Rfam assigns this 108-nucleotide RNA from Gracilimonas mengyeensis to the family "SAM riboswitch aptamer (S box leader)".
The family's consensus secondary structure is taken from published work.
It scores 76 bits against the family's covariance model.
The organism belongs to Gracilimonas, within Bacteria.

RNA sequence: UGCUUAUAGAGAAAGACCGAGGGAAUGGGCCCGUGGACGUCUUGGCAACCACUUCUGGAAAGGGGCAGGUGCCAAAUCCCACUUCGCUUCCGCGAAGAAAGAUAAGCG
Numbered sequence: 001u002g003c004u005u006a007u008a009g010a011g012a013a014a015g016a017c018c019g020a021g022g023g024a025a026u027g028g029g030c031c032c033g034u035g036g037a038c039g040u041c042u043u044g045g046c047a048a049c050c051a052c053u054u055c056u057g058g059a060a061a062g063g064g065g066c067a068g069g070u071g072c073c074a075a076a077u078c079c080c081a082c083u084u085c086g087c088u089u090c091c092g093c094g095a096a097g098a099a100a101g102a103u104a105a106g107c108g
Base pairs, nucleotide, nucleotide: 001108002107003106004105005104006103007102013043014042015041016040017039021032022031023030026081027080028079029078044073045072046071047070049069050068052064053063054062077100082097083096084095085094086093087092
Source information: About the family: The SAM riboswitch is found upstream of a number of genes which code for proteins involved in methionine or cysteine biosynthesis in Gram-positive bacteria.